The record is a 76-nucleotide sequence from Alligator mississippiensis, which matches "Mammalian CPEB3 ribozyme" in Rfam.

RNA sequence: ACUGGAGGUUCAAGGUCAUAGCAGAAGCCUGCAUGGCAUGGCCCUGUCAGAUUCCAAUGAAUCUAUGAAUUCUGCU
Numbered sequence: 001a002c003u004g005g006a007g008g009u010u011c012a013a014g015g016u017c018a019u020a021g022c023a024g025a026a027g028c029c030u031g032c033a034u035g036g037c038a039u040g041g042c043c044c045u046g047u048c049a050g051a052u053u054c055c056a057a058u059g060a061a062u063c064u065a066u067g068a069a070u071u072c073u074g075c076u
Base pairs, nucleotide, nucleotide: 014043015042016041017040020076021075022074023073024072025071026070027037028036029035049064050063051062052061053060054059
A search with the family's covariance model found it, with a score of 43 bits.